The family of this 76-nucleotide RNA from Diaphorina citri is "mir-71 microRNA precursor family". Rfam links the family to the GO terms RISC complex and miRNA-mediated post-transcriptional gene silencing.
RNA sequence: GUGUCGUGAAAGACAUGGGUAGUGAGAUGGACAAUGUUACUCUCACCAAUCUCACUACUUUGUCUUUCAUGAUAAC
Numbered sequence: 001g002u003g004u005c006g007u008g009a010a011a012g013a014c015a016u017g018g019g020u021a022g023u024g025a026g027a028u029g030g031a032c033a034a035u036g037u038u039a040c041u042c043u044c045a046c047c048a049a050u051c052u053c054a055c056u057a058c059u060u061u062g063u064c065u066u067u068c069a070u071g072a073u074a075a076c
Base pairs, nucleotide, nucleotide: 008068009067010066011065012064013063014062015061017060018059019058021056022055023054024053025052026051027050028049
The base pairs follow the family's consensus structure, which was predicted with RNAalifold.